Actinobacteria sRNA Ms_IGR-5: a 227-nucleotide sequence from Planobispora rosea. The family's RNA type in Rfam is small RNA. The organism belongs to Planobispora, within Bacteria. A reference for the family is Li et al. (2013), "Identification of small RNAs in Mycobacterium smegmatis using heterologous Hfq", RNA. The match comes from Rfam's covariance-model search (67 bits).
RNA sequence: ACGCAGAAAGGAGGUGGUCCAGACAAUGGUUGAUCAUUAUCGGACUAGCGAGGUGGCUGUCCGCUAGGACGCCCCGACUCCGGACUCGGUCUGGACGUCACGUGGCGUUCGGCGAAUCCACGGCAAUCACCGGAACCCCGGGCUGCCGGAGGGCGGGAACCUCCCGCCUCUGGUCCAUCCGGCCCUUCCGCUCCGCGCGGGAGGAAACGGUCCGGGGUUCUUCAUUC
Numbered sequence: 001a002c003g004c005a006g007a008a009a010g011g012a013g014g015u016g017g018u019c020c021a022g023a024c025a026a027u028g029g030u031u032g033a034u035c036a037u038u039a040u041c042g043g044a045c046u047a048g049c050g051a052g053g054u055g056g057c058u059g060u061c062c063g064c065u066a067g068g069a070c071g072c073c074c075c076g077a078c079u080c081c082g083g084a085c086u087c088g089g090u091c092u093g094g095a096c097g098u099c100a101c102g103u104g105g106c107g108u109u110c111g112g113c114g115a116a117u118c119c120a121c122g123g124c125a126a127u128c129a130c131c132g133g134a135a136c137c138c139c140g141g142g143c144u145g146c147c148g149g150a151g152g153g154c155g156g157g158a159a160c161c162u163c164c165c166g167c168c169u170c171u172g173g174u175c176c177a178u179c180c181g182g183c184c185c186u187u188c189c190g191c192u193c194c195g196c197g198c199g200g201g202a203g204g205a206a207a208c209g210g211u212c213c214g215g216g217g218u219u220c221u222u223c224a225u226u227c
Base pairs, nucleotide, nucleotide: 013061014060015059016058017057018056062114063113064112065111067109068108070107071106072105073104075102076101132221133220134219135218136217137216138215139214140213141212142211143210144209146201147200